[Rfam]
RNA sequence: UCUUGAACUGCUAUAGCAGCGCAUCAUGGUUUGAAACAAUGUUGGAAAGGUGCGAACCAUCAUUUGCUGCUUUAGUAUUUUAAGG
Numbered sequence: 001u002c003u004u005g006a007a008c009u010g011c012u013a014u015a016g017c018a019g020c021g022c023a024u025c026a027u028g029g030u031u032u033g034a035a036a037c038a039a040u041g042u043u044g045g046a047a048a049g050g051u052g053c054g055a056a057c058c059a060u061c062a063u064u065u066g067c068u069g070c071u072u073u074a075g076u077a078u079u080u081u082a083a084g085g
Stems, first nucleotide, its partner, number of pairs: 001085006013073001015071007023063002026060008035051001
Rfam assigns this 85-nucleotide sequence from Salvelinus namaycush to the family "mir-15 microRNA precursor family".
NCBI's taxonomy places the organism under Eukaryota, Metazoa, Euteleostomi, Neopterygii, Salvelinus.
Rfam links the family to the GO terms miRNA-mediated post-transcriptional gene silencing and RISC complex.
From the family's description: This family represents the related mir-15a and mir-15b sequences. In humans miR-15a and miR-16 are clustered within 0.5 kb at 13q14. This region has been shown to be deleted in more than half of B cell chronic lymphocytic leukaemias (CLL). Both miR-15a and miR-16 are deleted or down-regulated in more than two thirds of CLL cases. The mature sequence is excised from the 5' arm of the hairpin.